Shown here is a 250-nucleotide RNA from Paraburkholderia sp. BL10I2N1, a member of the family "permuted transfer-messenger RNA". The base pairs follow the family's consensus structure, which is taken from published work. Taxonomically the source falls in Paraburkholderia (Bacteria, Pseudomonadati, Betaproteobacteria, Burkholderiaceae).
RNA sequence: UGCUGUAACUCCUUUGACGUGAAGGCGUACUGGACGCGGGUUCGAUUCCCGCCACCUCCACCAGAUGACGCGUUUGGCAGAAGCGCCAUCUGAUGGGGGUGUCCCGGUUUCGACAGGGCGAGAUAGCGAAGAAGGCAGCAGGAAAGGUGACCGACCUAACCGGCACAAAUCCGUAACUGCAAAUGAUGGCAGCUACACCUUGAGAGCUAACGGCUAACAUCCGGUUUUGCUUCUCCGAGUUGCCGCCCCA
Numbered sequence: 001u002g003c004u005g006u007a008a009c010u011c012c013u014u015u016g017a018c019g020u021g022a023a024g025g026c027g028u029a030c031u032g033g034a035c036g037c038g039g040g041u042u043c044g045a046u047u048c049c050c051g052c053c054a055c056c057u058c059c060a061c062c063a064g065a066u067g068a069c070g071c072g073u074u075u076g077g078c079a080g081a082a083g084c085g086c087c088a089u090c091u092g093a094u095g096g097g098g099g100u101g102u103c104c105c106g107g108u109u110u111c112g113a114c115a116g117g118g119c120g121a122g123a124u125a126g127c128g129a130a131g132a133a134g135g136c137a138g139c140a141g142g143a144a145a146g147g148u149g150a151c152c153g154a155c156c157u158a159a160c161c162g163g164c165a166c167a168a169a170u171c172c173g174u175a176a177c178u179g180c181a182a183a184u185g186a187u188g189g190c191a192g193c194u195a196c197a198c199c200u201u202g203a204g205a206g207c208u209a210a211c212g213g214c215u216a217a218c219a220u221c222c223g224g225u226u227u228u229g230c231u232u233c234u235c236c237g238a239g240u241u242g243c244c245g246c247c248c249c250a
Base pairs, nucleotide, nucleotide: 001140002139003138004137005136014130015129026120027119028118030116031115032114036052037051038050039049040048053101054100055099056098057097058096059095141156142155